Overview: Shown here is a 233-nucleotide sequence from Tyzzerella sp. An114, a member of the family "T-box leader". A reference for the family is Gerdeman et al. (2003), "Solution structure of the Bacillus subtilis T-box antiterminator RNA: seven nucleotide bulge characterized by stacking and flexibility", J Mol Biol. Lineage of the source: Bacteria > Bacillota > Lachnospirales > Lachnospiraceae > Tyzzerella. The base pairs follow the family's consensus structure, which is taken from published work. It is annotated as a cis-regulatory leader.
[Rfam]
RNA sequence: UUAAACACAAUGACGGGGACAGUAGUCUUUUAUUGAAAGCAAAAGCGAGCCGGUUAUGGUGAGAGUCCGGUGCGAUUAGAUUUUUGAUGAAUAUCACCCCUAAGUGGCAGAGUGAAAAAUUUUUUAUUUAGUAGCUUCUGACGGUUUUCCGCCGUUAAAGGGAUUUUUUGAGAGGUCGUUUUUUGUUUACAAACGACAAUUCAGGUGGUAACGCGGUAACCUUCGUCCUGUUA
Numbered sequence: 001u002u003a004a005a006c007a008c009a010a011u012g013a014c015g016g017g018g019a020c021a022g023u024a025g026u027c028u029u030u031u032a033u034u035g036a037a038a039g040c041a042a043a044a045g046c047g048a049g050c051c052g053g054u055u056a057u058g059g060u061g062a063g064a065g066u067c068c069g070g071u072g073c074g075a076u077u078a079g080a081u082u083u084u085u086g087a088u089g090a091a092u093a094u095c096a097c098c099c100c101u102a103a104g105u106g107g108c109a110g111a112g113u114g115a116a117a118a119a120u121u122u123u124u125u126a127u128u129u130a131g132u133a134g135c136u137u138c139u140g141a142c143g144g145u146u147u148u149c150c151g152c153c154g155u156u157a158a159a160g161g162g163a164u165u166u167u168u169u170g171a172g173a174g175g176u177c178g179u180u181u182u183u184u185g186u187u188u189a190c191a192a193a194c195g196a197c198a199a200u201u202c203a204g205g206u207g208g209u210a211a212c213g214c215g216g217u218a219a220c221c222u223u224c225g226u227c228c229u230g231u232u233a
Stems, first nucleotide, its partner, number of pairs: 007105002015100004025088003039073002049071005108140004112135002142154003175197007202230004213226004